[Rfam]
RNA: Bacterial large subunit ribosomal RNA, nucleotides 9 to 594
RNA sequence: UAUUAAGGGCACGCGGGGGAUGCCUAGGCGCCAGAUGCCGAUGAAGGACGUAGCAAGCUGCGAAAAGCCACGGGGAGGCGCAAGCGGCCGUUGAUCCGUGGAUUUCCGAAUGGGGCAACCUGCCGGGAGUAGUUCCGGCGCCCUUUAUGGGGCGGGCACUCGGCGAAGUGAAACAUCUCAGUAGCCGAAGGUAGGAGAAAUCGAAGAGAUUCCCUGAGUAGUGGUGAGCGAAAGGGGAGCAGCCUAAACACUGUGCGUGUAAGCGUGCGGGCGUUGCGCGCGGUGGGUAGAGGGACAGGCUGAGGGCGGGCCGCAUCUCGUCCGGUCAGUGAGAAAGGCUCAUUGUAGCGGAACCGUGUUGGGAAAGCGGGCCGCAGAGGGUGAUAGCCCCGUACGCGAAACGAUGAGCUCUGGCUAAGCCUGAUCCCGAGUAGGGCGGAGCACGUGGAAUUCCGUCUGAAUCAGGGCCGACCACGGUCUAAGGCUAAAUACGUCUGGCGACCGAUAGUGUAUCAGUACCGAGAGGGAAAGGUGAAAAGCACCCCUGGCGGGGAGUGAAAUAGACCUGAAACCGCGUGCUUACAAG
Dot-bracket structure: ......((((((((((.....(((..(((((((((((((......((((((........))).....(((((((..(((.......))).....)))))))...)))....(((....)))(((((((....))))))).(((......))).))...((((((.....((....))......))))).)..........((...))..((((((.....((.....))....)))))..((((....(((((((((((...............)))))))))))......(((..(((((.................................(.((((((((((.(((...((((.(......)))))..(...).(((.......)))...)))...)))))))))).).....)))))...))).....((((((((.........))))))))......(((((......)))))..))))..)..))))))))).))...............((....))....)).........((((....))))............).....)))))))))).....